[Rfam]
RNA sequence: CAACCCGGUGAAACCAGGUCCGCCGCAUCUCCUGGUCUUGUCGGGUCGGUCGAUCGAUGCCGGCGAGAGUGGCCUCCUCGUUGACCCGGCAUCGAUCGACCACUCU
Numbered sequence: 001c002a003a004c005c006c007g008g009u010g011a012a013a014c015c016a017g018g019u020c021c022g023c024c025g026c027a028u029c030u031c032c033u034g035g036u037c038u039u040g041u042c043g044g045g046u047c048g049g050u051c052g053a054u055c056g057a058u059g060c061c062g063g064c065g066a067g068a069g070u071g072g073c074c075u076c077c078u079c080g081u082u083g084a085c086c087c088g089g090c091a092u093c094g095a096u097c098g099a100c101c102a103c104u105c106u
Base pairs, nucleotide, nucleotide: 003046004045005044006043007042008041009040010039013036014035015034016033017032018031048101049100050099051098052097053096054095055094056093057092058091